Description
Shown here is an 89-nucleotide sequence from Hespellia stercorisuis, a member of the family "GA-cis RNA". It scores 55 bits against the family's covariance model. The organism belongs to Hespellia stercorisuis, within Bacteria.
RNA sequence: ACAAGGUGGAGACCAUCUGGAACGAAGUUUCAUAUAUUCCAUGUUUCCGCCGGUCUGCCGCUGAGCGAAAGCGAGGGGCAUGACAUAUC
Numbered sequence: 001a002c003a004a005g006g007u008g009g010a011g012a013c014c015a016u017c018u019g020g021a022a023c024g025a026a027g028u029u030u031c032a033u034a035u036a037u038u039c040c041a042u043g044u045u046u047c048c049g050c051c052g053g054u055c056u057g058c059c060g061c062u063g064a065g066c067g068a069a070a071g072c073g074a075g076g077g078g079c080a081u082g083a084c085a086u087a088u089c
Base pairs, nucleotide, nucleotide: 008048009047010046011045012044013043018032019031020030021029022028057079058078059077061076062075065072066071